[Rfam]
RNA sequence: UCCCAAUAUUCUUUGUCAGGACACUUUCUCGCCAAUUCUUUGGUGCCUUUCGUGGGAGACGUCUGUUACAAUAUUGGGAGAUCAAACAUCCGAGCUUGAUGUCUCGUUGGUCCUUGGACCAUCGAGGCUGAUUUGGUCCCGUCUUGGGGCCGGUCAUUAGCAAGGGCCGUGUUUCAUUUUUGAGUUGAACUCCAUCUCUGUCCACUGGGACGGCAUUGUGAUGGUUUUCUUAGUAAUGAUUCAUACAUAC
Number, nucleotide and partner (000 for none) at each position: 001u000002c000003c077004c076005a075006a074007u073008a000009u000010u000011c000012u000013u000014u000015g000016u000017c000018a000019g064020g063021a062022c061023a000024c000025u058026u057027u056028c055029u000030c045031g044032c043033c042034a041035a000036u000037u000038c000039u000040u000041u034042g033043g032044u031045g030046c000047c000048u000049u000050u000051c000052g000053u000054g000055g028056g027057a026058g025059a000060c000061g022062u021063c020064u019065g000066u000067u000068a000069c000070a000071a000072u000073a007074u006075u005076g004077g003078g000079a000080g000081a000082u000083c000084a000085a000086a000087c000088a000089u166090c165091c164092g000093a000094g000095c000096u000097u126098g000099a122100u121101g120102u000103c000104u000105c000106g000107u000108u000109g000110g000111u000112c000113c000114u000115u000116g000117g000118a000119c000120c101121a100122u099123c000124g000125a000126g097127g161128c160129u159130g158131a157132u000133u000134u000135g151136g150137u149138c148139c147140c146141g145142u000143c000144u000145u141146g140147g139148g138149g137150c136151c135152g000153g000154u000155c000156a000157u131158u130159a129160g128161c127162a000163a000164g091165g090166g089167c000168c000169g244170u243171g242172u000173u000174u239175c238176a237177u236178u000179u000180u000181u000182g000183a000184g000185u000186u000187g229188a228189a227190c000191u000192c000193c223194a222195u221196c220197u000198c213199u212200g211201u210202c209203c208204a000205c000206u000207g000208g203209g202210a201211c200212g199213g198214c000215a000216u000217u000218g000219u000220g196221a195222u194223g193224g000225u000226u000227u189228u188229c187230u000231u000232a000233g000234u000235a000236a177237u176238g175239a174240u000241u000242c171243a170244u169245a000246c000247a000248u000249a000250c000

Shown here is a 250-nucleotide RNA sequence from Microdochium bolleyi, a member of the family "Small nucleolar RNA snR191". It is annotated as an H/ACA-box small nucleolar RNA. The family is grouped with related families in Rfam's "SNORA74 clan". It scores 63 bits against the family's covariance model. For this family Rfam cites "A snoRNA that guides the two most conserved pseudouridine modifications within rRNA confers a growth advantage in yeast" (Badis et al., RNA, 2003).